RNA sequence: CCCUCCGAAGUUUCCCUCAGGAUAGCUGGCGCUCGUCCGUCCGUCGCAGUUUUAUCCGGUAAAGCGAAUGAUUAGAGGUCUUGGGGCCGAAACGAUCUCAACCUAUUCUCAAACUUUAAAUGGGUAAGAAGCCCGGCUCGCUGGCCUGGAGCCGGGCGUGGAAUGCGAGCCGCCCAGUGGGCCACUUUUGGUAAGCAGAACUGGCGCUGCGGGAUGAACCGAACGCCGGGUUAAGGCGCCCGAUGCCGACGCUCAUCAGACCCCAGAAAAGGUGUUGGUCGAUCUAGACAGCAGGACGGUGGCCAUGGAAGUCGGAAUCCGCCAAGGAGUGUGUAACAACUCACCUGCCGAAUCGACUAGCCCUGAAAAUGGAUGGCGCUGGAGCGUCGGGCCCAUACCCGGCCGUCGCGGGCGAUGCGGGCCGCGGGGGCUAGGCCGCGACGAGUAGGAGGGCCGCCGCGGUGGGCCUUGAAGCCUAGGGCGCGGGCCCGGGUGGAGCCGCCGCGGGUGCAGAU
Numbered sequence: 001c002c003c004u005c006c007g008a009a010g011u012u013u014c015c016c017u018c019a020g021g022a023u024a025g026c027u028g029g030c031g032c033u034c035g036u037c038c039g040u041c042c043g044u045c046g047c048a049g050u051u052u053u054a055u056c057c058g059g060u061a062a063a064g065c066g067a068a069u070g071a072u073u074a075g076a077g078g079u080c081u082u083g084g085g086g087c088c089g090a091a092a093c094g095a096u097c098u099c100a101a102c103c104u105a106u107u108c109u110c111a112a113a114c115u116u117u118a119a120a121u122g123g124g125u126a127a128g129a130a131g132c133c134c135g136g137c138u139c140g141c142u143g144g145c146c147u148g149g150a151g152c153c154g155g156g157c158g159u160g161g162a163a164u165g166c167g168a169g170c171c172g173c174c175c176a177g178u179g180g181g182c183c184a185c186u187u188u189u190g191g192u193a194a195g196c197a198g199a200a201c202u203g204g205c206g207c208u209g210c211g212g213g214a215u216g217a218a219c220c221g222a223a224c225g226c227c228g229g230g231u232u233a234a235g236g237c238g239c240c241c242g243a244u245g246c247c248g249a250c251g252c253u254c255a256u257c258a259g260a261c262c263c264c265a266g267a268a269a270a271g272g273u274g275u276u277g278g279u280c281g282a283u284c285u286a287g288a289c290a291g292c293a294g295g296a297c298g299g300u301g302g303c304c305a306u307g308g309a310a311g312u313c314g315g316a317a318u319c320c321g322c323c324a325a326g327g328a329g330u331g332u333g334u335a336a337c338a339a340c341u342c343a344c345c346u347g348c349c350g351a352a353u354c355g356a357c358u359a360g361c362c363c364u365g366a367a368a369a370u371g372g373a374u375g376g377c378g379c380u381g382g383a384g385c386g387u388c389g390g391g392c393c394c395a396u397a398c399c400c401g402g403c404c405g406u407c408g409c410g411g412g413c414g415a416u417g418c419g420g421g422c423c424g425c426g427g428g429g430g431c432u433a434g435g436c437c438g439c440g441a442c443g444a445g446u447a448g449g450a451g452g453g454c455c456g457c458c459g460c461g462g463u464g465g466g467c468c469u470u471g472a473a474g475c476c477u478a479g480g481g482c483g484c485g486g487g488c489c490c491g492g493g494u495g496g497a498g499c500c501g502c503c504g505c506g507g508g509u510g511c512a513g514a515u
Base pairs, nucleotide, nucleotide: 001453002452003451004450005449006448011024013022014021015020028174029173030172031171033169050129051128052127053126054125055124056123057122062117063115064114069111070110071109074106076104077103078102081101082100083099084098085097086096088094131157132156133155134154135153136152137151138150139149181205182204183203184202186200187199188198189197190196210221211220212219225403226402227401228400229399231397235393236392237391244390246389250386251385252384270364271363272362274361275360276359277358278357279356280355281354282353283352291348292347293346294345295344297321298320299319303315304314322326327342331340332339404443405442406441407440408439409438410437411436455510457507458506459505460504461503462502463501464500466499467498474494475493480489481488482487
The record is a 515-nucleotide part of an RNA from Anolis carolinensis, which matches "Eukaryotic large subunit ribosomal RNA" in Rfam.
Pairs were carried over by alignment from the consensus structure, which is taken from published work.
Rfam's curators put it in the seed alignment.
Lineage of the source: Eukaryota > Eumetazoa > Squamata > Anolidae > Anolis.
Rfam 15.1 lists 107,465 matches to the family in 2,616 species.
Gene Ontology terms of the family: ribosome and structural constituent of ribosome.